[Rfam]
Nucleotides: 097
Stems, first nucleotide, its partner, number of pairs: 003092005010084005017076006024066004034059004042051003
Number, partner (000 for none) and nucleotide at each position: 001000g002000a003092a004091g005090g006089c007088u008000g009000g010084c011083g012082g013081u014080g015000g016000a017076c018075g019074g020073g021072c022071u023000c024066c025065u026064c027063g028000c029000c030000a031000a032000c033000c034059c035058g036057g037056u038000c039000a040000g041000g042051u043050c044049c045000g046000g047000a048000a049044g050043g051042a052000a053000g054000c055000a056037g057036c058035c059034g060000u061000a062000a063027c064026g065025a066024g067000u068000u069000u070000c071022g072021g073020u074019c075018c076017g077000g078000g079000u080014c081013g082012c083011c084010g085000a086000c087000c088007a089006g090005u091004c092003u093000u094000c095000c096000a097000c